[Rfam]
RNA sequence: AUACUUACCUGGCCCGAGCGUGGUGGUGAUCAAGCAGGCCACCCGCUCGUCGCAGGCUGCCCACCUUGCACGUCGUGGGUGCCUGCGGCGGGAGGCUCCUACGGGGGUGCUCCGGGGCUUAAUUUAUGGCAGGCUGAGGCCAGCGCUAUGCGCUCCUCGGC
Numbered sequence: 001a002u003a004c005u006u007a008c009c010u011g012g013c014c015c016g017a018g019c020g021u022g023g024u025g026g027u028g029a030u031c032a033a034g035c036a037g038g039c040c041a042c043c044c045g046c047u048c049g050u051c052g053c054a055g056g057c058u059g060c061c062c063a064c065c066u067u068g069c070a071c072g073u074c075g076u077g078g079g080u081g082c083c084u085g086c087g088g089c090g091g092g093a094g095g096c097u098c099c100u101a102c103g104g105g106g107g108u109g110c111u112c113c114g115g116g117g118c119u120u121a122a123u124u125u126a127u128g129g130c131a132g133g134c135u136g137a138g139g140c141c142a143g144c145g146c147u148a149u150g151c152g153c154u155c156c157u158c159g160g161c
Base pairs, nucleotide, nucleotide: 012118013117014116015115016048017047018046019045020044023042024041025040026039027038049089050088051087052086056082057081060079061078062077063076064075091113092112093111095108096107098106099105134160135159136158137157138156142154143153144152145151
Dot-bracket structure: ...........(((((((((..(((((..........))))).)))))((((...((..(((((..........))))).))...)))).(((.((.((.....))))..))).))))...............(((((...((((.....)))).))))).
U1 spliceosomal RNA: a 161-nucleotide RNA from Raphidocelis subcapitata. The family is grouped with related families in Rfam's "U1 clan". Gene Ontology terms of the family: mRNA 5'-splice site recognition, pre-mRNA 5'-splice site binding and U1 snRNP. Rfam's curators write: U1 is a small nuclear RNA (snRNA) component of the spliceosome (involved in pre-mRNA splicing). Its 5' end forms complementary base pairs with the 5' splice junction, thus defining the 5' donor site of an intron. The organism belongs to Raphidocelis, within Eukaryota.